[Rfam]
RNA sequence: ACCACCCCUAGCCCGACGGGGCGAACGCGGGAAGCCUUCACUCGCUGGGGUGGCCUUCUCCAUGAUGG
Numbered sequence: 001a002c003c004a005c006c007c008c009u010a011g012c013c014c015g016a017c018g019g020g021g022c023g024a025a026c027g028c029g030g031g032a033a034g035c036c037u038u039c040a041c042u043c044g045c046u047g048g049g050g051u052g053g054c055c056u057u058c059u060c061c062a063u064g065a066u067g068g
Stems, first nucleotide, its partner, number of pairs: 002053007011022004027045005035068002038065003

A member of the RNA family "int-alpA RNA" from Craterilacuibacter sinensis, 68 nucleotides long.
A search with the family's covariance model found it, with a score of 50 bits.
The organism belongs to Craterilacuibacter, within Bacteria.
Acidobacteria (1 example), Planctomycetes (1 example), Proteobacteria.